[Rfam]
RNA sequence: UCAUGCCAUUUGGUAUCUGACACAUAAUCAUUUAUCUGAUUAUGCGUCUCGAAACAUGGCAGAAAGCGAGGGGGAACGGUCCUUGCGACACUGGUUGCUGCUAUAUGAGCUUCUAGUUACUAUAUACCCGUUUACAUAU
Numbered sequence: 001u002c003a004u005g006c007c008a009u010u011u012g013g014u015a016u017c018u019g020a021c022a023c024a025u026a027a028u029c030a031u032u033u034a035u036c037u038g039a040u041u042a043u044g045c046g047u048c049u050c051g052a053a054a055c056a057u058g059g060c061a062g063a064a065a066g067c068g069a070g071g072g073g074g075a076a077c078g079g080u081c082c083u084u085g086c087g088a089c090a091c092u093g094g095u096u097g098c099u100g101c102u103a104u105a106u107g108a109g110c111u112u113c114u115a116g117u118u119a120c121u122a123u124a125u126a127c128c129c130g131u132u133u134a135c136a137u138a139u
Stems, first nucleotide, its partner, number of pairs: 004061006019048003023044008075132005090117005097110003
RNA: Small nucleolar RNA F1/F2/snoR5a